A member of the RNA family "permuted transfer-messenger RNA" from Arminella tubonensis, 216 nucleotides long. The family's RNA type in Rfam is non-coding RNA gene. Lineage of the source: Bacteria > Pseudomonadati > Pseudomonadota > Rhizobiaceae > Arminella. The match comes from Rfam's covariance-model search (149 bits). Bacterial tmRNA, also known as 10Sa RNA or SsrA, is named for its dual tRNA and mRNA-like properties. Its role is to liberate the mRNA from a stalled ribosome. To accomplish this part of the tmRNA is used as a reading frame that ends in a translation stop signal. The broken mRNA is replaced in the ribosome by the tmRNA and translation of the tmRNA leads to addition of a proteolysis tag to the incomplete protein enabling recognition by a protease.
RNA sequence: GGUGAUAAACGAGCGAUGGAAUAAGCCUAUUGGACCCGGGGGCGGUACCCGGCGCCUCCACCAAAAACCGGCGAUCGAAGGCCGGCUUUUGAUGGGGGCGAAAUAGGAUCGACAAGGGUGUAAAGAUCGUCUUUUUGCUCGGCAUUGUACCACCGUUAUCGGGCUAAACUUGUAGUUGCAAAUGACAACUAUGCGGAAGCUCGUCUCGCUGCUUAA
Numbered sequence: 001g002g003u004g005a006u007a008a009a010c011g012a013g014c015g016a017u018g019g020a021a022u023a024a025g026c027c028u029a030u031u032g033g034a035c036c037c038g039g040g041g042g043c044g045g046u047a048c049c050c051g052g053c054g055c056c057u058c059c060a061c062c063a064a065a066a067a068c069c070g071g072c073g074a075u076c077g078a079a080g081g082c083c084g085g086c087u088u089u090u091g092a093u094g095g096g097g098g099c100g101a102a103a104u105a106g107g108a109u110c111g112a113c114a115a116g117g118g119u120g121u122a123a124a125g126a127u128c129g130u131c132u133u134u135u136u137g138c139u140c141g142g143c144a145u146u147g148u149a150c151c152a153c154c155g156u157u158a159u160c161g162g163g164c165u166a167a168a169c170u171u172g173u174a175g176u177u178g179c180a181a182a183u184g185a186c187a188a189c190u191a192u193g194c195g196g197a198a199g200c201u202c203g204u205c206u207c208g209c210u211g212c213u214u215a216a
Stems, first nucleotide, its partner, number of pairs: 001139005014129004026118003030115003036052005053100007140155003